[Rfam]
Record summary:
The family of this 143-nucleotide RNA sequence from Aspergillus coremiiformis is "A. fumigatus sRNA Afu_254". The family's RNA type in Rfam is small RNA. NCBI's taxonomy places the organism under Eukaryota, Opisthokonta, Pezizomycotina, Aspergillus, Aspergillus subgen. Circumdati. A search with the family's covariance model found it, with a score of 65 bits.
RNA sequence: UAACAAACCAUCGACAUCUUCCAUUCACGCUUCAAACCCCCCUCGAGAAACACUCUCAUCCAUCAACAUGUCUCCCUGUUCAUGCAACUGCUGCAGUGGCAACUGCGCGAGCUGCUCCUGCGCCUCCUGCAGCGUAAGUCCAG
Numbered sequence: 001u002a003a004c005a006a007a008c009c010a011u012c013g014a015c016a017u018c019u020u021c022c023a024u025u026c027a028c029g030c031u032u033c034a035a036a037c038c039c040c041c042c043u044c045g046a047g048a049a050a051c052a053c054u055c056u057c058a059u060c061c062a063u064c065a066a067c068a069u070g071u072c073u074c075c076c077u078g079u080u081c082a083u084g085c086a087a088c089u090g091c092u093g094c095a096g097u098g099g100c101a102a103c104u105g106c107g108c109g110a111g112c113u114g115c116u117c118c119u120g121c122g123c124c125u126c127c128u129g130c131a132g133c134g135u136a137a138g139u140c141c142a143g
Stems, first nucleotide, its partner, number of pairs: 077101004084094003105130003114121002